[Rfam]
RNA sequence: UCAAAACUAGUCACUUGUUCUUUUUUAAUUAGUUCUUAGUGCAUUAAAAUUUUCUAAGAACCAAUUAGAAAAUUGCAAGUGGCUAGUUUUAG
Numbered sequence: 001u002c003a004a005a006a007c008u009a010g011u012c013a014c015u016u017g018u019u020c021u022u023u024u025u026u027a028a029u030u031a032g033u034u035c036u037u038a039g040u041g042c043a044u045u046a047a048a049a050u051u052u053u054c055u056a057a058g059a060a061c062c063a064a065u066u067a068g069a070a071a072a073u074u075g076c077a078a079g080u081g082g083c084u085a086g087u088u089u090u091a092g
Stems, first nucleotide, its partner, number of pairs: 003090016021072010032061008
Background: The record is a 92-nucleotide RNA sequence from Prunus yedoensis, which matches "MIR6288 microRNA precursor family" in Rfam. The base pairs follow the family's consensus structure, which was predicted with RNAalifold. The source organism's lineage runs through Eukaryota, Gunneridae, fabids, Prunus and Prunus yedoensis. It scores 88 bits against the family's covariance model.